[Rfam]
RNA sequence: AGUCCAUGAUGAUAAUCCAAAGGCUUUUUUCUCAAGAACAUUCGCUGUUGCUGCCUAAGAGCUUUCACCUUUCGCUGGGCUUGAGAGCUUAUGCUGCUUUAUUCCUUCCUUGGAUGUCUGAGACU
Numbered sequence: 001a002g003u004c005c006a007u008g009a010u011g012a013u014a015a016u017c018c019a020a021a022g023g024c025u026u027u028u029u030u031c032u033c034a035a036g037a038a039c040a041u042u043c044g045c046u047g048u049u050g051c052u053g054c055c056u057a058a059g060a061g062c063u064u065u066c067a068c069c070u071u072u073c074g075c076u077g078g079g080c081u082u083g084a085g086a087g088c089u090u091a092u093g094c095u096g097c098u099u100u101a102u103u104c105c106u107u108c109c110u111u112g113g114a115u116g117u118c119u120g121a122g123a124c125u
Stems, first nucleotide, its partner, number of pairs: 001125004061088006
The record is a 125-nucleotide RNA from Papaver somniferum, which matches "Small nucleolar RNA SNORD14" in Rfam. The base pairs follow the family's consensus structure, which was predicted with PFOLD. U14 small nucleolar RNA (U14 snoRNA) is required for early cleavages of eukaryotic precursor rRNAs. It is annotated as a C/D-box small nucleolar RNA.